[Rfam]
A member of the RNA family "t44 RNA" from Erwinia amylovora, 105 nucleotides long. The family's consensus secondary structure was predicted with LocARNA. The organism belongs to Erwinia amylovora, within Bacteria. The family's RNA type in Rfam is small RNA.

RNA sequence: CUCACUAUGUGUAAAUAACACACACGUAUCGAUACCUGGGCCGGGGUGCCCUGCUGGUUCAAAAGAGCCGACGGGUCGGUUGCCAGGGAUACGUGGAGGCUUAAC
Dot-bracket structure: ......................((((((((....(..(.((((....((((.....................))))))))..)..).))))))))..........